[Rfam]
RNA sequence: CCACGUGAUUCUUUACUACGGACCGUUCGGCACGUACCUGCCGAUAAAGAAAUGGAGUU
Number, nucleotide and partner (000 for none) at each position: 001c000002c000003a000004c000005g000006u000007g000008a000009u051010u050011c049012u048013u047014u046015a045016c000017u000018a000019c000020g000021g000022a000023c000024c000025g000026u000027u044028c043029g042030g041031c040032a039033c000034g000035u000036a000037c000038c000039u032040g031041c030042c029043g028044a027045u015046a014047a013048a012049g011050a010051a009052a000053u000054g000055g000056a000057g000058u000059u000
The family of this 59-nucleotide RNA sequence from Corynebacterium pseudotuberculosis is "msiK RNA". NCBI's taxonomy places the organism under Bacteria, Bacillati, Mycobacteriales, Corynebacterium, Corynebacterium pseudotuberculosis. The match comes from Rfam's covariance-model search (56 bits). The family has 120 seed sequences and 1,374 matches in Rfam 15.1.